[Rfam]
RNA: Mammalian CPEB3 ribozyme
Organism: Crocodylus porosus
RNA sequence: GUUGCAAGUUUGCGACCACAGCAGAAGAAGUGCUCAUGGCACAGCCAUGUCAGAUUUCAACAAAUCUGCAAAUUCUGCU
Number, nucleotide and partner (000 for none) at each position: 001g000002u000003u000004g000005c000006a000007a000008g000009u000010u000011u000012g000013c000014g046015a000016c044017c000018a000019c000020a079021g078022c077023a076024g000025a000026a000027g075028a074029a073030g042031u041032g040033c000034u000035c000036a000037u000038g000039g000040c032041a031042c030043a000044g016045c000046c014047a000048u000049g000050u000051c068052a067053g066054a065055u064056u063057u062058c000059a000060a000061c000062a057063a056064a055065u054066c053067u052068g051069c000070a000071a000072a000073u029074u028075c027076u023077g022078c021079u020